[Rfam]
RNA sequence: GGCUGACCGAUUUCUCCUGGUGUUCAGAGUCUGUUUUUGUCUAGCACCAUUUGAAAUUGGUUAUGA
Number, nucleotide and partner (000 for none) at each position: 001g000002g000003c000004u063005g061006a000007c060008c059009g058010a057011u056012u055013u054014c053015u000016c000017c000018u049019g048020g047021u046022g045023u000024u000025c000026a042027g041028a040029g000030u000031c000032u000033g000034u000035u000036u000037u000038u000039g000040u028041c027042u026043a000044g000045c022046a021047c020048c019049a018050u000051u000052u000053g014054a013055a012056a011057u010058u009059g008060g007061u005062u000063a004064u000065g000066a000